Rfam assigns this 53-nucleotide RNA from Salvator merianae to the family "MAT2A 3'UTR stem loop C". On this family, see Parker et al., Genome Res 2011: "New families of human regulatory RNA structures identified by comparative analysis of vertebrate genomes". The family's consensus secondary structure is taken from published work. A search with the family's covariance model found it, with a score of 50 bits.
RNA sequence: UCAUUCUGAAGUUACUGGUGUAGCUACAGAGAAGCCAGUUCUCUUCAGAGUAU
Numbered sequence: 001u002c003a004u005u006c007u008g009a010a011g012u013u014a015c016u017g018g019u020g021u022a023g024c025u026a027c028a029g030a031g032a033a034g035c036c037a038g039u040u041c042u043c044u045u046c047a048g049a050g051u052a053u
Stems, first nucleotide, its partner, number of pairs: 003051007014039006020027002